[Rfam]
RNA sequence: CUCUUAUCAAGAGAAGUGGAGGGAAAGGCCCUGUGAAGCUUCGGCAACCAGUAUGUAUCAUUCGCAUAUAUGGUGCCAAUUCCUAUUUUAGAUGUUUUAUCUAAAAAAAGAUGAGAG
Numbered sequence: 001c002u003c004u005u006a007u008c009a010a011g012a013g014a015a016g017u018g019g020a021g022g023g024a025a026a027g028g029c030c031c032u033g034u035g036a037a038g039c040u041u042c043g044g045c046a047a048c049c050a051g052u053a054u055g056u057a058u059c060a061u062u063c064g065c066a067u068a069u070a071u072g073g074u075g076c077c078a079a080u081u082c083c084u085a086u087u088u089u090a091g092a093u094g095u096u097u098u099a100u101c102u103a104a105a106a107a108a109a110g111a112u113g114a115g116a117g
Stems, first nucleotide, its partner, number of pairs: 001117008013042005021031003026084003043077004048073002051069006081109001086106008